RNA sequence: UGUUAACAAUUUCAUCCAAUGGUACUAUUAAAAACUGGCAUGGCUGGAGGAAUAACAAGACAAUGACAUAUGGCGUGCACAUAUACUUUAUGUUGACAUAUAGAGAUUAGCUUUUAACAGUAGAAAUGAAUGAAAACUUUAAGA
Numbered sequence: 001u002g003u004u005a006a007c008a009a010u011u012u013c014a015u016c017c018a019a020u021g022g023u024a025c026u027a028u029u030a031a032a033a034a035c036u037g038g039c040a041u042g043g044c045u046g047g048a049g050g051a052a053u054a055a056c057a058a059g060a061c062a063a064u065g066a067c068a069u070a071u072g073g074c075g076u077g078c079a080c081a082u083a084u085a086c087u088u089u090a091u092g093u094u095g096a097c098a099u100a101u102a103g104a105g106a107u108u109a110g111c112u113u114u115u116a117a118c119a120g121u122a123g124a125a126a127u128g129a130a131u132g133a134a135a136a137c138u139u140u141a142a143g144a
Stems, first nucleotide, its partner, number of pairs: 003142004010135006018127001020125001023122004028117006
A member of the RNA family "MIR7502 microRNA precursor family" from Gossypium armourianum, 144 nucleotides long. Its family is annotated with miRNA-mediated post-transcriptional gene silencing and RISC complex in the Gene Ontology. It scores 84 bits against the family's covariance model. The organism belongs to Gossypium, within Eukaryota. The family has 6 seed sequences and 74,505 matches in Rfam 15.1.